mir-135 microRNA precursor family: an 86-nucleotide RNA sequence from Dissostichus mawsoni. For this family Rfam cites "Identification of tissue-specific microRNAs from mouse" (Lagos-Quintana et al., Curr Biol, 2002). Rfam links the family to the GO terms RISC complex and gene silencing by miRNA. It scores 75 bits against the family's covariance model.

[Rfam]
RNA sequence: UGCCUAGUGCGCUGUAUGGCUUUUUAUUCCUAUCUGACUGUACUGAUGGUUCAUAUAGGGAUGGAAGCCAUGCACCGCGCUGGGAG
Numbered sequence: 001u002g003c004c005u006a007g008u009g010c011g012c013u014g015u016a017u018g019g020c021u022u023u024u025u026a027u028u029c030c031u032a033u034c035u036g037a038c039u040g041u042a043c044u045g046a047u048g049g050u051u052c053a054u055a056u057a058g059g060g061a062u063g064g065a066a067g068c069c070a071u072g073c074a075c076c077g078c079g080c081u082g083g084g085a086g
Stems, first nucleotide, its partner, number of pairs: 003084009013074011026062008035053003